[Rfam]
Nucleotides: 073
Stems, first nucleotide, its partner, number of pairs: 003070007011062002015058009025048003030043001
Number, partner (000 for none) and nucleotide at each position: 001000c002000c003070a004069u005068u006067u007066u008065u009064g010000c011062a012061c013000a014000c015058c016057a017056c018055a019054a020053a021052a022051g023050u024000g025048c026047u027046g028000a029000g030043c031000c032000u033000c034000a035000a036000c037000u038000u039000a040000a041000a042000u043030g044000a045000c046027c047026a048025g049000u050023a051022c052021u053020u054019u055018u056017g057016u058015g059000u060000a061012g062011u063000a064009c065008a066007a067006a068005a069004a070003u071000u072000g073000c